[Rfam]
RNA sequence: GCACCUAUAGCUCAGUUGGUAGAGCAGCGGACUCUUAAUCCGCGGGUCGUAGGUUCGAGCCCUACUGGGUGUA
Numbered sequence: 001g002c003a004c005c006u007a008u009a010g011c012u013c014a015g016u017u018g019g020u021a022g023a024g025c026a027g028c029g030g031a032c033u034c035u036u037a038a039u040c041c042g043c044g045g046g047u048c049g050u051a052g053g054u055u056c057g058a059g060c061c062c063u064a065c066u067g068g069g070u071g072u073a
Stems, first nucleotide, its partner, number of pairs: 001072007010025004027043005049065005

Overview: Rfam assigns this 73-nucleotide RNA from Roseimaritima multifibrata to the family "tRNA". The family's consensus secondary structure is taken from published work. Lineage of the source: Bacteria > Pseudomonadati > Planctomycetia > Pirellulales > Roseimaritima. It is annotated as a transfer RNA.